[Rfam]
RNA: M-box riboswitch aptamer (ykoK leader)
RNA sequence: UGCUAAACCUGUUAGGUGAGGCUCCUAUACAAACACAGGCUAUUGCCCAAAAAUGUCGAAAGACGCCAAUGGGUAGAACAGGAAUUGUCGGAUUAAGGCUCUUCUUAAGAUAGCUAAGUAAUCAAUUUCCAUUACUUUACGUUGUAUAGUGCCAAAGCUCUACUAGGGGGAGGAAAG
Numbered sequence: 001u002g003c004u005a006a007a008c009c010u011g012u013u014a015g016g017u018g019a020g021g022c023u024c025c026u027a028u029a030c031a032a033a034c035a036c037a038g039g040c041u042a043u044u045g046c047c048c049a050a051a052a053a054u055g056u057c058g059a060a061a062g063a064c065g066c067c068a069a070u071g072g073g074u075a076g077a078a079c080a081g082g083a084a085u086u087g088u089c090g091g092a093u094u095a096a097g098g099c100u101c102u103u104c105u106u107a108a109g110a111u112a113g114c115u116a117a118g119u120a121a122u123c124a125a126u127u128u129c130c131a132u133u134a135c136u137u138u139a140c141g142u143u144g145u146a147u148a149g150u151g152c153c154a155a156a157g158c159u160c161u162a163c164u165a166g167g168g169g170g171a172g173g174a175a176a177g
Base pairs, nucleotide, nucleotide: 008170009169010168011163012162013096015159016158017157020153021152022151025149026148027147028146029145030144031143032142039114040113041112042111043110045074046073047072048071049070054065055064056063057062081105082104083103084102087099088098089097116137117136118135119134120133121132122131